Small nucleolar RNA SNORA81: a 181-nucleotide RNA from Muraenolepis orangiensis.
It scores 73 bits against the family's covariance model.
The source organism's lineage runs through Eukaryota, Vertebrata, Teleostei, Neoteleostei and Muraenolepis.
Gene Ontology terms of the family: RNA processing and nucleolus.
RNA sequence: UCUUCUGUGUAAAAAGAACGCUGCUAAAAUUGUGUGAUUUAGUUUAUGCUGGACCACUGCAAUAAUGCUAGCAGCGUUAUAAACUGUGAAGGAGAGCAUUGUAGUGUGCUGCAACUGGGAUCUGGUCGAACCUCUUUCUUAAUGUUCCUUGACCUGCGUCUCAAAGCCCACUACCACAUUU
Numbered sequence: 001u002c003u004u005c006u007g008u009g010u011a012a013a014a015a016g017a018a019c020g021c022u023g024c025u026a027a028a029a030u031u032g033u034g035u036g037a038u039u040u041a042g043u044u045u046a047u048g049c050u051g052g053a054c055c056a057c058u059g060c061a062a063u064a065a066u067g068c069u070a071g072c073a074g075c076g077u078u079a080u081a082a083a084c085u086g087u088g089a090a091g092g093a094g095a096g097c098a099u100u101g102u103a104g105u106g107u108g109c110u111g112c113a114a115c116u117g118g119g120a121u122c123u124g125g126u127c128g129a130a131c132c133u134c135u136u137u138c139u140u141a142a143u144g145u146u147c148c149u150u151g152a153c154c155u156g157c158g159u160c161u162c163a164a165a166g167c168c169c170a171c172u173a174c175c176a177c178a179u180u181u
Base pairs, nucleotide, nucleotide: 019076020075022073023072024071025070026069029066030065031064032063034057035056038053039052040051041050042049043048101174102173103172104171105170106169108167123152125150128147129146130145